Ribosomal S15 leader: a 112-nucleotide RNA from Cronobacter sakazakii. Gene Ontology term of the family: regulation of translation, ncRNA-mediated. The family's RNA type in Rfam is cis-regulatory leader.

[Rfam]
RNA sequence: UCGGGUGGCUGAAUUAGAGAUCGGCACCCUUAUUUUUUAUAAACUGGAGUUAAAAAUGUCUCUAAGCGUUGAAGCUAAAGCUAAAAUCGUUUCUGAGUUUGGUCGUGGUGAG
Numbered sequence: 001u002c003g004g005g006u007g008g009c010u011g012a013a014u015u016a017g018a019g020a021u022c023g024g025c026a027c028c029c030u031u032a033u034u035u036u037u038u039a040u041a042a043a044c045u046g047g048a049g050u051u052a053a054a055a056a057u058g059u060c061u062c063u064a065a066g067c068g069u070u071g072a073a074g075c076u077a078a079a080g081c082u083a084a085a086a087u088c089g090u091u092u093c094u095g096a097g098u099u100u101g102g103u104c105g106u107g108g109u110g111a112g
Stems, first nucleotide, its partner, number of pairs: 008025005045064005
The source organism's lineage runs through Bacteria, Pseudomonadota, Gammaproteobacteria, Enterobacteriaceae and Cronobacter sakazakii. Rfam's curators write: The E. coli Ribosomal S15 gene 5' UTR can form two alternative structures. For this family Rfam cites "Pseudoknot and translational control in the expression of the S15 ribosomal protein" (Benard et al., Biochimie, 1996).